[Rfam]
RNA sequence: GAGUGAACACAGCCCUUUCAGAAUUUUUCUAGCAGCUAUUCUGACUUUGGUUGGAAAAUCCAA
Numbered sequence: 001g002a003g004u005g006a007a008c009a010c011a012g013c014c015c016u017u018u019c020a021g022a023a024u025u026u027u028u029c030u031a032g033c034a035g036c037u038a039u040u041c042u043g044a045c046u047u048u049g050g051u052u053g054g055a056a057a058a059u060c061c062a063a
Base pairs, nucleotide, nucleotide: 035060037058039056040055041054042053043052044051045050
A member of the RNA family "U7 small nuclear RNA" from Rattus norvegicus, 63 nucleotides long. Pairs were carried over by alignment from the consensus structure, which was predicted with PFOLD.